[Rfam]
RNA sequence: UGCAAGUGAUGCAAAGUAUGUUACCUGGAAGAUGGUGAUGACACUUUAAACCACCAAGAUCGCUGAUGCA
Numbered sequence: 001u002g003c004a005a006g007u008g009a010u011g012c013a014a015a016g017u018a019u020g021u022u023a024c025c026u027g028g029a030a031g032a033u034g035g036u037g038a039u040g041a042c043a044c045u046u047u048a049a050a051c052c053a054c055c056a057a058g059a060u061c062g063c064u065g066a067u068g069c070a
Base pairs, nucleotide, nucleotide: 001070002069003068004067
A member of the RNA family "Small nucleolar RNA SNORD24" from Bos indicus x Bos taurus, 70 nucleotides long.
The source organism's lineage runs through Eukaryota, Metazoa, Craniata, Artiodactyla and Bos.
The literature on the family includes a 1995 paper in Nucleic Acids Res by Qu et al., "U24, a novel intron-encoded small nucleolar RNA with two 12 nt long, phylogenetically conserved complementarities to 28S rRNA".
Rfam classes the family as a C/D-box small nucleolar RNA.
Its family is annotated with nucleolus and RNA processing in the Gene Ontology.